Record summary:
The record is an 89-nucleotide RNA from Rattus norvegicus, which matches "mir-449 microRNA precursor family" in Rfam. Taxonomically the source falls in Rattus (Eukaryota, Bilateria, Euarchontoglires, Myomorpha). The sequence is in the family's curated seed alignment. Its Rfam clan is "mir-34 clan". Pairs were carried over by alignment from the consensus structure, which was predicted with RNAalifold.

[Rfam]
RNA sequence: UGGGUGUGUCAGACAGGCAGUGCAUUGCUAGCUGGCUGUUAGAACUUCGUCCCAACAGUGGCUAGCUGCACUACCCUCUGCUGCACUUA
Numbered sequence: 001u002g003g004g005u006g007u008g009u010c011a012g013a014c015a016g017g018c019a020g021u022g023c024a025u026u027g028c029u030a031g032c033u034g035g036c037u038g039u040u041a042g043a044a045c046u047u048c049g050u051c052c053c054a055a056c057a058g059u060g061g062c063u064a065g066c067u068g069c070a071c072u073a074c075c076c077u078c079u080g081c082u083g084c085a086c087u088u089a
Stems, first nucleotide, its partner, number of pairs: 001089008010080004016074001019072006027066008042053001